[Rfam]
RNA: Plastid-psbA-3 3UTR RNA
Organism: Pterygopleurum neurophyllum
RNA sequence: AAAAGGAGCAAUAACCUCUUUCUUGUUCUAUCAAGAGACGGUAUUGCUCCUUUUUUA
Number, nucleotide and partner (000 for none) at each position: 001a000002a053003a052004a051005g050006g049007a048008g047009c046010a045011a044012u043013a042014a000015c040016c000017u000018c000019u000020u037021u036022c035023u034024u033025g032026u000027u000028c000029u000030a000031u000032c025033a024034a023035g022036a021037g020038a000039c000040g015041g000042u013043a012044u011045u010046g009047c008048u007049c006050c005051u004052u003053u002054u000055u000056u000057a000